[Rfam]
Small nucleolar RNA U3: a 220-nucleotide RNA sequence from Pomacea canaliculata. The organism belongs to Pomacea, within Eukaryota. A reference for the family is Marz and Stadler (2010), "Comparative analysis of eukaryotic U3 snoRNA", RNA Biol. Rfam links the family to the GO terms RNA processing and nucleolus. Small nucleolar RNAs (snoRNAs) are involved in the processing and modification of rRNA in the nucleolus. There are two main classes of snoRNAs: the box C/D class, and the box H/ACA class.
RNA sequence: AGGAUCAUACUUUUAGGGAUCAUUUCUAAAGGUUGUUCUGCCGAGACGUCAGGUAACUCUGACAGGUCCGCAAACCGCGAGGACGAGACGUAGCCUCCCCUUCUGAGCGCGAAGCGGGUGGAGUGUCGUGGCUGGCUCUAGCUACGUCACUGCAUCAUUGAUGACCGUUCCUCUCCUCCCUGUGUGGGGAGCUGGAGGAAGGGGCGGCAUUCUGAGCGGU
Numbered sequence: 001a002g003g004a005u006c007a008u009a010c011u012u013u014u015a016g017g018g019a020u021c022a023u024u025u026c027u028a029a030a031g032g033u034u035g036u037u038c039u040g041c042c043g044a045g046a047c048g049u050c051a052g053g054u055a056a057c058u059c060u061g062a063c064a065g066g067u068c069c070g071c072a073a074a075c076c077g078c079g080a081g082g083a084c085g086a087g088a089c090g091u092a093g094c095c096u097c098c099c100c101u102u103c104u105g106a107g108c109g110c111g112a113a114g115c116g117g118g119u120g121g122a123g124u125g126u127c128g129u130g131g132c133u134g135g136c137u138c139u140a141g142c143u144a145c146g147u148c149a150c151u152g153c154a155u156c157a158u159u160g161a162u163g164a165c166c167g168u169u170c171c172u173c174u175c176c177u178c179c180c181u182g183u184g185u186g187g188g189g190a191g192c193u194g195g196a197g198g199a200a201g202g203g204g205c206g207g208c209a210u211u212c213u214g215a216g217c218g219g220u
Stems, first nucleotide, its partner, number of pairs: 002039003006035002010031002014028005048063005074220005093208003097204008107168003117156004123150003128145005171194001173191006